RNA sequence: GGGUCCUUUAAAUACAGUCCCGUGAGGCUGAAAAGGUACGUGAAAACUAAUGGAAGAUGUAUGUCUUUUUCUAUGGUUUAUUAUAUCCUUUUGCCUACACGGCAAAAGGAUUUUUUACGU
Numbered sequence: 001g002g003g004u005c006c007u008u009u010a011a012a013u014a015c016a017g018u019c020c021c022g023u024g025a026g027g028c029u030g031a032a033a034a035g036g037u038a039c040g041u042g043a044a045a046a047c048u049a050a051u052g053g054a055a056g057a058u059g060u061a062u063g064u065c066u067u068u069u070u071c072u073a074u075g076g077u078u079u080a081u082u083a084u085a086u087c088c089u090u091u092u093g094c095c096u097a098c099a100c101g102g103c104a105a106a107a108g109g110a111u112u113u114u115u116u117a118c119g120u
Base pairs, nucleotide, nucleotide: 005036006035007034008033009032015030016029017028018027019026046078048076050074051073052072053071054070055069056068057067059065083113085111086110087109088108089107090106091105092104093103094102
The record is a 120-nucleotide sequence from Bacillus sp. FJAT-27986, which matches "PyrR binding site" in Rfam. Rfam's curators write: This family represents the PyrR binding site and terminator structure. This RNA structure is found upstream of a variety of genes involved in pyrimidine biosynthesis and transport. The alignment also includes a portion of the antiterminator structure. It is annotated as a cis-regulatory element. NCBI's taxonomy places the organism under Bacteria, Bacillati, Bacillota, Bacilli, Bacillus. Rfam 15.1 lists 1,498 matches to the family in 930 species.